Rfam assigns this 87-nucleotide RNA sequence to the family "nadA riboswitch". The literature on the family includes a 2020 paper in RNA by Huang et al., "Structure and ligand binding of the ADP-binding domain of the NAD(+) riboswitch". Rfam classes the family as a small RNA.
[Rfam]
RNA sequence: GGCUGCAACAACCCCGUGGGUGGGGACGUUUGAGCUAGCCGGAGGGAUUUCCGGUCAUCUCAAGGCGUCAGUGCAUCCACUGCAGUC
Numbered sequence: 001g002g003c004u005g006c007a008a009c010a011a012c013c014c015c016g017u018g019g020g021u022g023g024g025g026a027c028g029u030u031u032g033a034g035c036u037a038g039c040c041g042g043a044g045g046g047a048u049u050u051c052c053g054g055u056c057a058u059c060u061c062a063a064g065g066c067g068u069c070a071g072u073g074c075a076u077c078c079a080c081u082g083c084a085g086u087c
Stems, first nucleotide, its partner, number of pairs: 001087007013073001014071001016080007023072001025069005030063005